Annotation: The record is a 139-nucleotide RNA from Caenorhabditis briggsae, which matches "Nematode snoRNA ceN125" in Rfam. Rfam 15.1 lists 17 matches to the family in 14 species. The source organism's lineage runs through Eukaryota, Ecdysozoa, Chromadorea, Rhabditina and Caenorhabditis. For this family Rfam cites "Systematic identification of non-coding RNA 2,2,7-trimethylguanosine cap structures in Caenorhabditis elegans" (Jia et al., BMC Mol Biol, 2007).

[Rfam]
RNA sequence: CCACCCAAGGCAACAAAUUCCAAUCGUGUGAUCUUCUCGCAACACGAUUGAGCCGACGCCUUGGGAAAGCAUUGUCUUUGACCAUUUGAUCCCACUCUCGCUACUCAAUUGGUGAUUGUGGUUUGCACAUGGUCCACAC
Numbered sequence: 001c002c003a004c005c006c007a008a009g010g011c012a013a014c015a016a017a018u019u020c021c022a023a024u025c026g027u028g029u030g031a032u033c034u035u036c037u038c039g040c041a042a043c044a045c046g047a048u049u050g051a052g053c054c055g056a057c058g059c060c061u062u063g064g065g066a067a068a069g070c071a072u073u074g075u076c077u078u079u080g081a082c083c084a085u086u087u088g089a090u091c092c093c094a095c096u097c098u099c100g101c102u103a104c105u106c107a108a109u110u111g112g113u114g115a116u117u118g119u120g121g122u123u124u125g126c127a128c129a130u131g132g133u134c135c136a137c138a139c
Stems, first nucleotide, its partner, number of pairs: 004065008021050009052057001080135001081133005087127002089124001092121004098115005
Dot-bracket structure: ...((((((((.........(((((((((............))))))))).(....)))))))))..............((((((.(((..((((..(((((........)))))..))))..).)).))))).)....